[Rfam]
RNA: SAH (S-adenosyl-L-homocysteine) riboswitch aptamer
RNA sequence: CCCGCCGAGGGGCGCUGCGACCGCCGGAACCGCCAUGGUUCCCACCGGCCAGGCUCGGCGCGGCGUGUUCGACAACGGCGCCCCCGUGAC
Dot-bracket structure: ..((((((............(((..(................)..)))......))))))..............................
Numbered sequence: 001c002c003c004g005c006c007g008a009g010g011g012g013c014g015c016u017g018c019g020a021c022c023g024c025c026g027g028a029a030c031c032g033c034c035a036u037g038g039u040u041c042c043c044a045c046c047g048g049c050c051a052g053g054c055u056c057g058g059c060g061c062g063g064c065g066u067g068u069u070c071g072a073c074a075a076c077g078g079c080g081c082c083c084c085c086g087u088g089a090c
Stems, first nucleotide, its partner, number of pairs: 003060006021048003026043001